This 57-nucleotide RNA from Nocardia seriolae belongs to the Rfam family "F6 TB sRNA".

RNA sequence: GGGGUGGCUCCGUGCUGUUGCCAGACCCCCGACCCGGCAACCGCACGGAGCUCUCCA
Numbered sequence: 001g002g003g004g005u006g007g008c009u010c011c012g013u014g015c016u017g018u019u020g021c022c023a024g025a026c027c028c029c030c031g032a033c034c035c036g037g038c039a040a041c042c043g044c045a046c047g048g049a050g051c052u053c054u055c056c057a
Stems, first nucleotide, its partner, number of pairs: 002056003007051009017041006
Lineage of the source: Bacteria > Bacillati > Actinomycetota > Nocardiaceae > Nocardia. Pairs were carried over by alignment from the consensus structure, which is taken from published work. It scores 60 bits against the family's covariance model. Rfam 15.1 lists 310 matches to the family in 304 species.